[Rfam]
Rfam assigns this 116-nucleotide RNA sequence from Paeniglutamicibacter gangotriensis to the family "SAM (S-adenosyl methionine) riboswitch aptamer". Lineage of the source: Bacteria > Bacillati > Micrococcales > Paeniglutamicibacter > Paeniglutamicibacter gangotriensis. Rfam's curators write: SAM-IV is a mRNA element that regulates gene expression via direct sensing of S-adenosylmethionine (SAM or AdoMet). It scores 109 bits against the family's covariance model. The literature on the family includes a 2008 paper in RNA by Weinberg et al., "The aptamer core of SAM-IV riboswitches mimics the ligand-binding site of SAM-I riboswitches".
RNA sequence: GGUCAUGAGUUUCAGCUAAAGGCCCCGGCUUGCUGAACGGCAACCCUCCGCCGCGGUGGGGUGCCCCGGGUGAAGACCAGGCCCUGCGUCAGAAAGACGUGGGACAAGCGCGGGAA
Numbered sequence: 001g002g003u004c005a006u007g008a009g010u011u012u013c014a015g016c017u018a019a020a021g022g023c024c025c026c027g028g029c030u031u032g033c034u035g036a037a038c039g040g041c042a043a044c045c046c047u048c049c050g051c052c053g054c055g056g057u058g059g060g061g062u063g064c065c066c067c068g069g070g071u072g073a074a075g076a077c078c079a080g081g082c083c084c085u086g087c088g089u090c091a092g093a094a095a096g097a098c099g100u101g102g103g104a105c106a107a108g109c110g111c112g113g114g115a116a
Stems, first nucleotide, its partner, number of pairs: 001078004009038001011037006021030002039065003044061003048056002081105001083103008